[Rfam]
RNA sequence: CUACCGGCAUCGAGAGGUGCCGGGAUGGGUUGGCAGAAGUCAGCAGAGGCCAUACGAGUCGGAAUAACCGACCGACAAAGGGC
Numbered sequence: 001c002u003a004c005c006g007g008c009a010u011c012g013a014g015a016g017g018u019g020c021c022g023g024g025a026u027g028g029g030u031u032g033g034c035a036g037a038a039g040u041c042a043g044c045a046g047a048g049g050c051c052a053u054a055c056g057a058g059u060c061g062g063a064a065u066a067a068c069c070g071a072c073c074g075a076c077a078a079a080g081g082g083c
Stems, first nucleotide, its partner, number of pairs: 001027001004023008040047002049083003058076005
A member of the RNA family "Group II catalytic intron D1-D4-1" from Geotalea uraniireducens, 83 nucleotides long. NCBI's taxonomy places the organism under Bacteria, Pseudomonadati, Desulfuromonadia, Geobacteraceae, Geotalea uraniireducens.